[Rfam]
Record summary: Shown here is a 140-nucleotide RNA from Paenibacillus lentus, a member of the family "c-di-AMP riboswitch aptamer (ydaO/yuaA leader)". Lineage of the source: Bacteria > Bacillati > Bacilli > Paenibacillaceae > Paenibacillus. This family represents a conserved RNA structure found upstream of the ydaO and yuaA genes in Bacillus subtilis and related genes in other bacteria.

RNA sequence: ACAACUGAUAAGCCGAAUUCCCAACACCCGGGAAGCGGGGGAACCAUUUAUGGGUGAAUUGAUCUCGCUUCAAAAGAGAUGAUAGGGGAACCUUCAACCGAACCCUUAAGCUAACCUCGCAGGCCUUGGAAGGAGUAAUA
Numbered sequence: 001a002c003a004a005c006u007g008a009u010a011a012g013c014c015g016a017a018u019u020c021c022c023a024a025c026a027c028c029c030g031g032g033a034a035g036c037g038g039g040g041g042a043a044c045c046a047u048u049u050a051u052g053g054g055u056g057a058a059u060u061g062a063u064c065u066c067g068c069u070u071c072a073a074a075a076g077a078g079a080u081g082a083u084a085g086g087g088g089a090a091c092c093u094u095c096a097a098c099c100g101a102a103c104c105c106u107u108a109a110g111c112u113a114a115c116c117u118c119g120c121a122g123g124c125c126u127u128g129g130a131a132g133g134a135g136u137a138a139u140a
Stems, first nucleotide, its partner, number of pairs: 012124003018034005035120006052105003060082001062080005085099002